[Rfam]
Nucleotides: 182
Base pairs, nucleotide, nucleotide: 008175009174010173011172017080018079019078022075023074024073025072033065034064035063036062037061038060039059084114085113086112087111088110089109090108091107092106093105094104095103115141116140118138119137120136121135122134123133124132125131143167144166145165147163148162149161150160151159
Number, partner (000 for none) and nucleotide at each position: 001000c002000g003000a004000u005000a006000g007000g008175g009174u010173a011172g012000a013000g014000g015000c016000u017080g018079c019078a020000u021000u022075g023074c024073u025072u026000a027000u028000g029000a030000g031000u032000c033065g034064c035063a036062c037061a038060c039059g040000c041000a042000a043000g044000a045000u046000u047000g048000a049000c050000a051000u052000u053000g054000a055000u056000g057000a058000c059039c060038g061037u062036g063035u064034g065033u066000a067000a068000a069000a070000g071000g072025a073024a074023g075022c076000u077000u078019u079018g080017c081000c082000g083000a084114a085113g086112u087111u088110u089109g090108a091107u092106g093105g094104g095103g096000u097000u098000g099000u100000c101000a102000a103095u104094u105093c106092c107091a108090u109089c110088a111087g112086g113085c114084u115141g116140g117000g118138g119137u120136c121135a122134u123133u124132c125131c126000g127000a128000a129000u130000a131125g132124g133123g134122a135121u136120g137119g138118c139000a140116c141115u142000g143167u144166c145165a146000u147163a148162c149161g150160u151159c152000u153000u154000u155000u156000u157000u158000a159151g160150g161149c162148g163147u164000c165145u166144g167143a168000u169000g170000a171000g172011c173010u174009a175008c176000a177000g178000a179000u180000c181000g182000c